[Rfam]
This 59-nucleotide RNA from Saccharopolyspora gloriosae belongs to the Rfam family "Actino-pnp RNA". By type it is a cis-regulatory element. The match comes from Rfam's covariance-model search (68 bits). Pairs were carried over by alignment from the consensus structure, which is taken from published work.
RNA sequence: GCCGGUCCUCGGUAGUGGCUUCCGGGCAACCCGCCCGGUGGCUUCGAUCGAUGACCGGC
Numbered sequence: 001g002c003c004g005g006u007c008c009u010c011g012g013u014a015g016u017g018g019c020u021u022c023c024g025g026g027c028a029a030c031c032c033g034c035c036c037g038g039u040g041g042c043u044u045c046g047a048u049c050g051a052u053g054a055c056c057g058g059c
Stems, first nucleotide, its partner, number of pairs: 001059007009051005017043004022038006